[Rfam]
RNA sequence: UGAACGGAAAGCUCGCGUUAGGGGUAAACUUACGGACAAUGGAAUUUAUUCCAUCGGUCAUUUUUUAAUAACCCUUGGGAAGGUCUGAGAAAAACUGACAAGUCUUUAGCUGGGACACUCAUGAGAGUGGGUCAUGAAUAACCAGAAAUAGUAUCCUCUUUGAUUCAGAAUGUGAUGUCGUUUUGACAGAUUCGAUUGAGUCAAUAGUAGGAGUUAAACACGAUUCAUUAGUGGAAGUUCUAUGAAGUGCGAUACGCGAGACAUUACAACUGUGAUGCAACUCAAUUCAGACUAUUCUUCCGUUCG
Numbered sequence: 001u002g003a004a005c006g007g008a009a010a011g012c013u014c015g016c017g018u019u020a021g022g023g024g025u026a027a028a029c030u031u032a033c034g035g036a037c038a039a040u041g042g043a044a045u046u047u048a049u050u051c052c053a054u055c056g057g058u059c060a061u062u063u064u065u066u067a068a069u070a071a072c073c074c075u076u077g078g079g080a081a082g083g084u085c086u087g088a089g090a091a092a093a094a095c096u097g098a099c100a101a102g103u104c105u106u107u108a109g110c111u112g113g114g115a116c117a118c119u120c121a122u123g124a125g126a127g128u129g130g131g132u133c134a135u136g137a138a139u140a141a142c143c144a145g146a147a148a149u150a151g152u153a154u155c156c157u158c159u160u161u162g163a164u165u166c167a168g169a170a171u172g173u174g175a176u177g178u179c180g181u182u183u184u185g186a187c188a189g190a191u192u193c194g195a196u197u198g199a200g201u202c203a204a205u206a207g208u209a210g211g212a213g214u215u216a217a218a219c220a221c222g223a224u225u226c227a228u229u230a231g232u233g234g235a236a237g238u239u240c241u242a243u244g245a246a247g248u249g250c251g252a253u254a255c256g257c258g259a260g261a262c263a264u265u266a267c268a269a270c271u272g273u274g275a276u277g278c279a280a281c282u283c284a285a286u287u288c289a290g291a292c293u294a295u296u297c298u299u300c301c302g303u304u305c306g
Stems, first nucleotide, its partner, number of pairs: 001306004007300003012260007020076005035059003085290005094232004102116005117132006134228006154212003262277006

The family of this 306-nucleotide RNA from Funneliformis caledonium is "Nuclear RNase P". Rfam describes the family as follows. Ribonuclease P (RNase P) is a ubiquitous endoribonuclease, found in archaea, bacteria and eukarya as well as chloroplasts and mitochondria. Its best characterised activity is the generation of mature 5'-ends of tRNAs by cleaving the 5'-leader elements of precursor-tRNAs. Cellular RNase Ps are ribonucleoproteins. RNA from bacterial RNase Ps retains its catalytic activity in the absence of the protein subunit, i.e. it is a ribozyme. Isolated eukaryotic and archaeal RNase P RNA has not been shown to retain its catalytic function, but is still essential for the catalytic activity of the holoenzyme. Although the archaeal and eukaryotic holoenzyme s have a much greater protein content than the bacterial ones, the RNA cores from all the three lineages are homologous -- helices corresponding to P1, P2, P3, P4, and P10/11 are common to all cellular RNase P RNAs. Yet, there is considerable sequence variation, particularly among the eukaryotic RNAs. The match comes from Rfam's covariance-model search (112 bits). Pairs were carried over by alignment from the consensus structure, which is taken from published work. For this family Rfam cites "Ribonuclease P: unity and diversity in a tRNA processing ribozyme" (Frank and Pace, Annu Rev Biochem, 1998).